[Rfam]
RNA: Group II catalytic intron D1-D4-7
RNA sequence: CCUGCGGUUCCGUCCGCAGUAGCAUGGCGACACUUGCGGGGUUGGCAACGACCUUGUGGGAAGCUGUUGCGACAAAGUAACUUCGUCCCCUGGGACGGUGGGCCUGCCGCGAGGUGAGGGCUUGCGAUCCGCCAAUGUCGGGUGGGUCGAGUG
Dot-bracket structure: .((((((......))))))........(((((((((((((((((....))))))))))))....))))).............((((((....))))))((((....((....))......))))...((((((.......)))))).......